[Rfam]
RNA sequence: CCCAGCGCAAUGCGCUGGGCUGAUAUGUUACGCACUUACAGCGCU
Number, nucleotide and partner (000 for none) at each position: 001c019002c018003c017004a016005g015006c014007g013008c012009a000010a000011u000012g008013c007014g006015c005016u004017g003018g002019g001020c000021u000022g000023a000024u000025a000026u000027g000028u000029u000030a000031c000032g044033c043034a000035c041036u040037u000038a000039c000040a036041g035042c000043g033044c032045u000
RNA: Acido-Lenti-1 RNA